Shown here is a 180-nucleotide sequence from Bacillus smithii, a member of the family "Lysine riboswitch aptamer".
Riboswitches are metabolite binding domains within certain messenger RNAs that serve as precision sensors for their corresponding targets.
Pairs were carried over by alignment from the consensus structure, which is taken from published work.

[Rfam]
RNA sequence: AGUGAUGAUAGAGGCGCGGAGUUCAAGAGUACAAGCUUGGAGAAGAAUGAGCUUCCAUGAAAAGUUUGGAAAGGGGACGGCCGCCGAAGCAGUGAAAGGCUCAUUCCUUUUUCUGCUGGUUCUGUGUUUAAGAAAUGCAGAACUGUCAAGAUGGAAUCGUCUUGGAGAGCUAUCUCACGC
Numbered sequence: 001a002g003u004g005a006u007g008a009u010a011g012a013g014g015c016g017c018g019g020a021g022u023u024c025a026a027g028a029g030u031a032c033a034a035g036c037u038u039g040g041a042g043a044a045g046a047a048u049g050a051g052c053u054u055c056c057a058u059g060a061a062a063a064g065u066u067u068g069g070a071a072a073g074g075g076g077a078c079g080g081c082c083g084c085c086g087a088a089g090c091a092g093u094g095a096a097a098g099g100c101u102c103a104u105u106c107c108u109u110u111u112u113c114u115g116c117u118g119g120u121u122c123u124g125u126g127u128u129u130a131a132g133a134a135a136u137g138c139a140g141a142a143c144u145g146u147c148a149a150g151a152u153g154g155a156a157u158c159g160u161c162u163u164g165g166a167g168a169g170c171u172a173u174c175u176c177a178c179g180c
Stems, first nucleotide, its partner, number of pairs: 007174005016084004021078004032068007088117005094111006118144011146165007